[Rfam]
RNA sequence: GCGGAGGGCCGGAUGGCUGCGGGCCUGGCAACAGGCGCGAGGAAAGUCCGGACUCCACAAGGCAACGGUGCCGGGUAAUACCCGGCCGGGGUAACCCGAGGGAAAGCGCCACAGAAAUGAGACCGCCCUCGUUUGAGGGUAAGGGUGAAACGGUGGGGUAAGAGCCCACCGCGCGGCUGGCAACAGCAGCGGCACGGCAAGCCCCACCGGGAGCAAUGCCAAAUAGGGACCGCAAGCGGGGUUUGGUCGGGCAACCGAUACCACCCGCAGGCAGCUUUGGCCCGGCGGUCCGGGUUGGCAGCUAGAGGUGCUUUGGCAACAGGGCAUCAAGAUGAAUGGUCAUCCAUGGGGGCAACCCCGGGACAGAAUCCGGCUUACAGGCCCUCCGCGCAC
Numbered sequence: 001g002c003g004g005a006g007g008g009c010c011g012g013a014u015g016g017c018u019g020c021g022g023g024c025c026u027g028g029c030a031a032c033a034g035g036c037g038c039g040a041g042g043a044a045a046g047u048c049c050g051g052a053c054u055c056c057a058c059a060a061g062g063c064a065a066c067g068g069u070g071c072c073g074g075g076u077a078a079u080a081c082c083c084g085g086c087c088g089g090g091g092u093a094a095c096c097c098g099a100g101g102g103a104a105a106g107c108g109c110c111a112c113a114g115a116a117a118u119g120a121g122a123c124c125g126c127c128c129u130c131g132u133u134u135g136a137g138g139g140u141a142a143g144g145g146u147g148a149a150a151c152g153g154u155g156g157g158g159u160a161a162g163a164g165c166c167c168a169c170c171g172c173g174c175g176g177c178u179g180g181c182a183a184c185a186g187c188a189g190c191g192g193c194a195c196g197g198c199a200a201g202c203c204c205c206a207c208c209g210g211g212a213g214c215a216a217u218g219c220c221a222a223a224u225a226g227g228g229a230c231c232g233c234a235a236g237c238g239g240g241g242u243u244u245g246g247u248c249g250g251g252c253a254a255c256c257g258a259u260a261c262c263a264c265c266c267g268c269a270g271g272c273a274g275c276u277u278u279g280g281c282c283c284g285g286c287g288g289u290c291c292g293g294g295u296u297g298g299c300a301g302c303u304a305g306a307g308g309u310g311c312u313u314u315g316g317c318a319a320c321a322g323g324g325c326a327u328c329a330a331g332a333u334g335a336a337u338g339g340u341c342a343u344c345c346a347u348g349g350g351g352g353c354a355a356c357c358c359c360g361g362g363a364c365a366g367a368a369u370c371c372g373g374c375u376u377a378c379a380g381g382c383c384c385u386c387c388g389c390g391c392a393c
Base pairs, nucleotide, nucleotide: 001389002388003387004386005385006384007383008382009381010380011378012344013343014342015341016340017339018338020039021038023036024035025034026033027032044376045375046374048373049372050371051370052369053213054212055211056210061277062276066209067208068207069206070205071085072084073083074082075081086100087098088097089096090095101204102203106202107201108198109197110196123144124143125140126139127138128137129136130135152170153169154168155167156166157165171193172191173190174189176187177186178185179184217300218299219298220297227291228290229289230288231287232286268284270282271281272280308327309326310325311324312323313322314321315320

A member of the RNA family "Bacterial RNase P class A" from Roseovarius aestuarii, 393 nucleotides long.
It is annotated as a ribozyme.
A search with the family's covariance model found it, with a score of 298 bits.
NCBI's taxonomy places the organism under Bacteria, Pseudomonadati, Rhodobacterales, Roseobacteraceae, Roseovarius.